Shown here is a 73-nucleotide RNA from Diatraea saccharalis, a member of the family "tRNA". Pairs were carried over by alignment from the consensus structure, which is taken from published work. The family's RNA type in Rfam is transfer RNA.

RNA sequence: UCCUGAGUAGCUCAGUGGUGAGAGCAGUCGCCCGGAUUGCGAAAGGUCGUGGGUUGGAUUCCCAUCUCAGGGU
Numbered sequence: 001u002c003c004u005g006a007g008u009a010g011c012u013c014a015g016u017g018g019u020g021a022g023a024g025c026a027g028u029c030g031c032c033c034g035g036a037u038u039g040c041g042a043a044a045g046g047u048c049g050u051g052g053g054u055u056g057g058a059u060u061c062c063c064a065u066c067u068c069a070g071g072g073u
Base pairs, nucleotide, nucleotide: 001072002071003070004069005068006067007066010025011024012023013022028042029041030040031039049065050064051063052062053061